Rfam assigns this 119-nucleotide RNA from Oryza meridionalis to the family "U5 spliceosomal RNA".
U5 RNA is a component of both types of known spliceosome. The precise function of this molecule is unknown, though it is known that the 5' loop is required for splice site selection and p220 binding, and that both the 3' stem-loop and the Sm site are important for Sm protein binding and cap methylation.
The base pairs follow the family's consensus structure, which is taken from published work.
For this family Rfam cites "The uRNA database" (Zwieb, Nucleic Acids Res, 1997).
NCBI's taxonomy places the organism under Eukaryota, Poales, Oryzoideae, Oryzeae, Oryza.
The family has 180 seed sequences and 28,527 matches in Rfam 15.1.
The match comes from Rfam's covariance-model search (90 bits).

RNA sequence: AGCUGCGUGGUGAGCACAAAGCGAACUAUUUUUUCGCCUUUUACUAAAGAAUACCGUGUGCGCUCCACAUGUAGCAGCAUACGCUAAUUUUUUGAGGUGUCCUUCCUUUCUAGAAGGGC
Numbered sequence: 001a002g003c004u005g006c007g008u009g010g011u012g013a014g015c016a017c018a019a020a021g022c023g024a025a026c027u028a029u030u031u032u033u034u035c036g037c038c039u040u041u042u043a044c045u046a047a048a049g050a051a052u053a054c055c056g057u058g059u060g061c062g063c064u065c066c067a068c069a070u071g072u073a074g075c076a077g078c079a080u081a082c083g084c085u086a087a088u089u090u091u092u093u094g095a096g097g098u099g100u101c102c103u104u105c106c107u108u109u110c111u112a113g114a115a116g117g118g119c
Stems, first nucleotide, its partner, number of pairs: 003077004008067003012063001014061005027053008100118006